Vault RNA: a 97-nucleotide RNA sequence from Microcebus murinus. Taxonomically the source falls in Microcebus (Eukaryota, Opisthokonta, Chordata, Boreoeutheria). About the family: This family of RNAs are found as part of the enigmatic vault ribonucleoprotein complex. The complex consists of a major vault protein (MVP), two minor vault proteins (VPARP and TEP1), and several small untranslated RNA molecules. It has been suggested that the vault complex is involved in drug resistance. The literature on the family includes a 2009 paper in Mol Biol Evol by Stadler et al., "Evolution of Vault RNAs". The match comes from Rfam's covariance-model search (44 bits). Pairs were carried over by alignment from the consensus structure, which is taken from published work.
RNA sequence: AGGCUGCUUUAGCUUAGCGGUUCCUUCGAGAGUGUUUUAACAACCUGUUUGCAGAGCCAGAGCAGUUCCAGACCCAUGGGCGCUCUCCAGUCCUAUA
Number, nucleotide and partner (000 for none) at each position: 001a000002g092003g091004c090005u089006g088007c000008u000009u000010u000011a000012g081013c080014u079015u078016a000017g077018c000019g075020g074021u000022u000023c000024c000025u071026u070027c000028g068029a067030g000031a000032g000033u000034g000035u000036u000037u000038u000039a000040a000041c000042a000043a000044c000045c000046u000047g000048u000049u000050u000051g000052c000053a000054g000055a000056g000057c000058c000059a000060g000061a000062g000063c000064a000065g000066u000067u029068c028069c000070a026071g025072a000073c000074c020075c019076a000077u017078g015079g014080g013081c012082g000083c000084u000085c000086u000087c000088c006089a005090g004091u003092c002093c000094u000095a000096u000097a000